RNA: Small nucleolar RNA SNORA24
Organism: Tupaia belangeri
RNA sequence: UUCCAUGUGUCUUUGGGACCUGUCAAGUGUGUCAGUCUCUCCUCCUAGCCAUGGAAGAGCAUGUUAUCAUUUAUUGGCAAAGCAGUCACAGUUUCAUUGGUAUCAGAUUCUGAAUUGCACAAGUAGCAUUC
Numbered sequence: 001u002u003c004c005a006u007g008u009g010u011c012u013u014u015g016g017g018a019c020c021u022g023u024c025a026a027g028u029g030u031g032u033c034a035g036u037c038u039c040u041c042c043u044c045c046u047a048g049c050c051a052u053g054g055a056a057g058a059g060c061a062u063g064u065u066a067u068c069a070u071u072u073a074u075u076g077g078c079a080a081a082g083c084a085g086u087c088a089c090a091g092u093u094u095c096a097u098u099g100g101u102a103u104c105a106g107a108u109u110c111u112g113a114a115u116u117g118c119a120c121a122a123g124u125a126g127c128a129u130u131c
Base pairs, nucleotide, nucleotide: 002055003054004053005052006051007050015041016040017039018038020035021034022033024031070126071125074122075121076120077118078117079116080115083106085104088101089100091098